[Rfam]
RNA: Streptomyces RNA 4115
RNA sequence: GCGUGGGUCGGCCCGCUGUACUGGAUCCGGUGGGCUGGGGGAUACCGCCGUUCCAUUCCCCGCGGGCGGUGGUCCGGUCCGGGAGGCGCAGCCCGCUUCCCGGACCGUC
Number, nucleotide and partner (000 for none) at each position: 001g108002c107003g000004u000005g000006g075007g074008u000009c037010g036011g035012c034013c033014c032015g031016c030017u029018g028019u000020a000021c000022u000023g000024g000025a000026u000027c000028c018029g017030g016031u015032g014033g013034g012035c011036u010037g009038g043039g000040g000041g000042a000043u038044a000045c072046c071047g070048c069049c068050g067051u066052u065053c064054c000055a000056u000057u000058c000059c000060c000061c000062g000063c000064g053065g052066g051067c050068g049069g048070u047071g046072g045073u000074c007075c006076g106077g105078u104079c103080c102081g101082g100083g099084a098085g097086g096087c095088g094089c000090a000091g000092c000093c000094c088095g087096c086097u085098u084099c083100c082101c081102g080103g079104a078105c077106c076107g002108u001109c000